[Rfam]
RNA sequence: CUGGCGGUGUACUCCCAGGACAGCUCCGACUCGGUGAGGACCUCGUCGCCGAAGUACUCGCCGUCGCCGAGCACCCCGAGCGACCGCUCGGCGCCGUACUCGCCGGGACCGAACUUCCCAAUCUUGCCGUGGGCGAUGAGGAACACCUCGUCGGCGGGCGCGCCCGUCUCGGCGAGCACGUCGCCCGGGGCGUACUCCCGCUGGACGAAGCGGUCGGCGAGACCGGCGAGCGCGCCGCCGUCGAAGCCGCGCAGCGCGGGCAGCUCAGCGAGCUCGCCGGGCACCACCCGCACCUCGGAUCCGACGGAGGUGAACGUGACGAGCCCGUCGCCGAGGACGUAGGUCAACCGCCGGUUGACCCGGUAGACGCCGCCGGCGGUCUGGACCCAGGGCAGCACCCGCAGCAGCCACCGCGAGGUGAUCUCCUGCAUCUGCGGGACGGACUUGGUGGUCGUCGCGAGGUUGCGCGCGGCCGCCGUGCUCAGACUCAGCCGGGGGUCCUCGC
Numbered sequence: 001c002u003g004g005c006g007g008u009g010u011a012c013u014c015c016c017a018g019g020a021c022a023g024c025u026c027c028g029a030c031u032c033g034g035u036g037a038g039g040a041c042c043u044c045g046u047c048g049c050c051g052a053a054g055u056a057c058u059c060g061c062c063g064u065c066g067c068c069g070a071g072c073a074c075c076c077c078g079a080g081c082g083a084c085c086g087c088u089c090g091g092c093g094c095c096g097u098a099c100u101c102g103c104c105g106g107g108a109c110c111g112a113a114c115u116u117c118c119c120a121a122u123c124u125u126g127c128c129g130u131g132g133g134c135g136a137u138g139a140g141g142a143a144c145a146c147c148u149c150g151u152c153g154g155c156g157g158g159c160g161c162g163c164c165c166g167u168c169u170c171g172g173c174g175a176g177c178a179c180g181u182c183g184c185c186c187g188g189g190g191c192g193u194a195c196u197c198c199c200g201c202u203g204g205a206c207g208a209a210g211c212g213g214u215c216g217g218c219g220a221g222a223c224c225g226g227c228g229a230g231c232g233c234g235c236c237g238c239c240g241u242c243g244a245a246g247c248c249g250c251g252c253a254g255c256g257c258g259g260g261c262a263g264c265u266c267a268g269c270g271a272g273c274u275c276g277c278c279g280g281g282c283a284c285c286a287c288c289c290g291c292a293c294c295u296c297g298g299a300u301c302c303g304a305c306g307g308a309g310g311u312g313a314a315c316g317u318g319a320c321g322a323g324c325c326c327g328u329c330g331c332c333g334a335g336g337a338c339g340u341a342g343g344u345c346a347a348c349c350g351c352c353g354g355u356u357g358a359c360c361c362g363g364u365a366g367a368c369g370c371c372g373c374c375g376g377c378g379g380u381c382u383g384g385a386c387c388c389a390g391g392g393c394a395g396c397a398c399c400c401g402c403a404g405c406a407g408c409c410a411c412c413g414c415g416a417g418g419u420g421a422u423c424u425c426c427u428g429c430a431u432c433u434g435c436g437g438g439a440c441g442g443a444c445u446u447g448g449u450g451g452u453c454g455u456c457g458c459g460a461g462g463u464u465g466c467g468c469g470c471g472g473c474c475g476c477c478g479u480g481c482u483c484a485g486a487c488u489c490a491g492c493c494g495g496g497g498g499u500c501c502u503c504g505c
Stems, first nucleotide, its partner, number of pairs: 006387003010383002014379002018325002025322002030318001032316002035313001041310003044306004049298004054233002057230007065111002077102004083097002086094002118221001122217002127212001130209001131206001134203002138199001140197001143196001149192002155188001157186002162177001165174003234293001237287001240284002247279001249277003253274003257268001259266001326339004348376003352372003360366001388428005394422001396420003400415003404412001434473002437470001440467002443464001444462003448458002474504002478499002481496003485492001
A member of the RNA family "Saccharopolyspora sRNA 350" from Frankia alni, 505 nucleotides long. The family's consensus secondary structure was predicted with RNAfold. The match comes from Rfam's covariance-model search (157 bits). The organism belongs to Frankia alni, within Bacteria. It is annotated as an antisense RNA.